Annotation: SL1 RNA: a 105-nucleotide sequence from Brugia malayi. From the family's description: This family represents the SL1 RNA. SL1 is commonly located in the spacer region between 5S-rRNA genes where it is involved in trans-splicing. Trans-splicing is a form of RNA processing. The acquisition of a spliced leader from a SL RNA is a intra-molecular reaction which precisely joins exons derived from separately transcribed RNAs. The sequence is in the family's curated seed alignment. The family's RNA type in Rfam is non-coding RNA gene. The organism belongs to Brugia, within Eukaryota. The literature on the family includes a 2001 paper in Gene by Dassanayake et al., "Trans-spliced leader RNA, 5S-rRNA genes and novel variant orphan spliced-leader of the lymphatic filarial nematode Wuchereria bancrofti, and a sensitive polymerase chain reaction based detection assay".
RNA sequence: GGUUUAAUUACCCAAGUUUGAGGUAAUUGAAUGUUUCGGCCCAGAGUUUAGGCUACUGUGGCUUGAAGUAAAAUUUUGGAACGUCCUGCAUAUUUGUGGGACAAU
Numbered sequence: 001g002g003u004u005u006a007a008u009u010a011c012c013c014a015a016g017u018u019u020g021a022g023g024u025a026a027u028u029g030a031a032u033g034u035u036u037c038g039g040c041c042c043a044g045a046g047u048u049u050a051g052g053c054u055a056c057u058g059u060g061g062c063u064u065g066a067a068g069u070a071a072a073a074u075u076u077u078g079g080a081a082c083g084u085c086c087u088g089c090a091u092a093u094u095u096g097u098g099g100g101a102c103a104a105u
Base pairs, nucleotide, nucleotide: 003031004030005029006028007027008026009025010024011023012022034068035067036066037065039062040061041060083102084101085100086099087098088097089096
Its Rfam clan is "SL clan".